About this RNA:
The record is an 88-nucleotide RNA sequence, which matches "GA-cis RNA" in Rfam. The base pairs follow the family's consensus structure, which is taken from published work.
[Rfam]
RNA sequence: AAUAGGAGCCAGCCAUAUGUGCGGAGCACAUAUUUAGGAUGCUGGCGACGACAUGCCGCCGAGCGGAUGCGAGGGGGCGAUACUUGAU
Number, nucleotide and partner (000 for none) at each position: 001a000002a000003u000004a000005g000006g000007a000008g046009c045010c044011a043012g042013c041014c000015a000016u032017a031018u030019g029020u028021g027022c000023g000024g000025a000026g000027c021028a020029c019030a018031u017032a016033u000034u000035u000036a000037g000038g000039a000040u000041g013042c012043u011044g010045g009046c008047g000048a000049c000050g000051a000052c000053a000054u000055g078056c077057c076058g000059c074060c073061g000062a000063g070064c069065g000066g000067a000068u000069g064070c063071g000072a000073g060074g059075g000076g057077g056078c055079g000080a000081u000082a000083c000084u000085u000086g000087a000088u000